[Rfam]
RNA: LOOT RNA
RNA sequence: AGCCGUAUUCUUAUUAAAGGCAUUAUAAAGUCUCUAAAAGCACGGCUCAAAACCCCAACCACGAUAUUAAGCUCCUCAUUGAGCACUCGUGGUUGGGUUUAUGCCCGUAAGGGCAUAAGGUAGCCCGAAAGGGCUAUC
Numbered sequence: 001a002g003c004c005g006u007a008u009u010c011u012u013a014u015u016a017a018a019g020g021c022a023u024u025a026u027a028a029a030g031u032c033u034c035u036a037a038a039a040g041c042a043c044g045g046c047u048c049a050a051a052a053c054c055c056c057a058a059c060c061a062c063g064a065u066a067u068u069a070a071g072c073u074c075c076u077c078a079u080u081g082a083g084c085a086c087u088c089g090u091g092g093u094u095g096g097g098u099u100u101a102u103g104c105c106c107g108u109a110a111g112g113g114c115a116u117a118a119g120g121u122a123g124c125c126c127g128a129a130a131g132g133g134c135u136a137u138c
Stems, first nucleotide, its partner, number of pairs: 001047004010040003014036001016035001054097011071084004099118008119138008